[Rfam]
RNA sequence: GUUGGUUACGGCGAUAUGACACCAAAAACCUUUCCCGGAAUGUUCAUCGGGGGAUUGUGCGCUAUUGCGGGCGUUCUAGCUAUCGCUCUUCCAGUUCCUGUUAUCGUCAGCAAC
Numbered sequence: 001g002u003u004g005g006u007u008a009c010g011g012c013g014a015u016a017u018g019a020c021a022c023c024a025a026a027a028a029c030c031u032u033u034c035c036c037g038g039a040a041u042g043u044u045c046a047u048c049g050g051g052g053g054a055u056u057g058u059g060c061g062c063u064a065u066u067g068c069g070g071g072c073g074u075u076c077u078a079g080c081u082a083u084c085g086c087u088c089u090u091c092c093a094g095u096u097c098c099u100g101u102u103a104u105c106g107u108c109a110g111c112a113a114c
Base pairs, nucleotide, nucleotide: 001114002113004111008107009106010105011104013102014101015100016099018097019096021095022094037077038076039075040074049063050062
RNA: Potassium channel RNA editing signal
Organism: Bombus vosnesenskii